[Rfam]
RNA sequence: GUAACCACAGAGGCACAGAGAACACAGAGUUUAAAAUCAAAUUUUCAAACUCUGUGUUCUCUGUGCCUCUGUGGUUAAAC
Numbered sequence: 001g002u003a004a005c006c007a008c009a010g011a012g013g014c015a016c017a018g019a020g021a022a023c024a025c026a027g028a029g030u031u032u033a034a035a036a037u038c039a040a041a042u043u044u045u046c047a048a049a050c051u052c053u054g055u056g057u058u059c060u061c062u063g064u065g066c067c068u069c070u071g072u073g074g075u076u077a078a079a080c
Base pairs, nucleotide, nucleotide: 003076004075005074008073009070010069011068012067013066014065015064016063018060020059021058022057023056024055025054026053027052
Source information
A member of the RNA family "mir-16 microRNA precursor family", 80 nucleotides long. The literature on the family includes a 2020 paper in Mol Cell by Partin et al., "Cryo-EM Structures of Human Drosha and DGCR8 in Complex with Primary MicroRNA". The match comes from Rfam's covariance-model search (39 bits).